[Rfam]
RNA sequence: GCAUGGGUUUGGAUUUAUGGCAGGCCCAUCCCCCUGGGUCUCUCAUAGUGUCCCAUGCUAGAGCAACUGUGGCCCUGAACCAUUGCCUGUAGGCUGCUGGCAAUGAAGUGGGUUGCACAGUG
Numbered sequence: 001g002c003a004u005g006g007g008u009u010u011g012g013a014u015u016u017a018u019g020g021c022a023g024g025c026c027c028a029u030c031c032c033c034c035u036g037g038g039u040c041u042c043u044c045a046u047a048g049u050g051u052c053c054c055a056u057g058c059u060a061g062a063g064c065a066a067c068u069g070u071g072g073c074c075c076u077g078a079a080c081c082a083u084u085g086c087c088u089g090u091a092g093g094c095u096g097c098u099g100g101c102a103a104u105g106a107a108g109u110g111g112g113u114u115g116c117a118c119a120g121u122g
Stems, first nucleotide, its partner, number of pairs: 001058004005053004015048006022041003025037002070115006081105002086100002088096002
A member of the RNA family "Small nucleolar RNA SNORA42/SNORA80 family" from Urocitellus parryii, 122 nucleotides long. From the family's description: The members of this family belong to the H/ACA class of snoRNAs that guide the sites of modification of uridines to pseudouridines. Human ACA42 (SNORA42) was cloned from HeLa cells by immunoprecipitation with anti-GAR1 antibody. Its is predicted to guide the pseudouridylation of residues U109 and U572 of 18S rRNA. ACA42 shares the same host gene with ACA26, ACA46, ACA50. This family also includes mammalian snoRNA ACA67 (SNORA80) which was identified by computational screening and its expression in mouse experimentally verified by Northern blot and primer extension analysis. Pairs were carried over by alignment from the consensus structure, which was predicted with RNAalifold. A reference for the family is Schattner et al. (2006), "A computational screen for mammalian pseudouridylation guide H/ACA RNAs", RNA.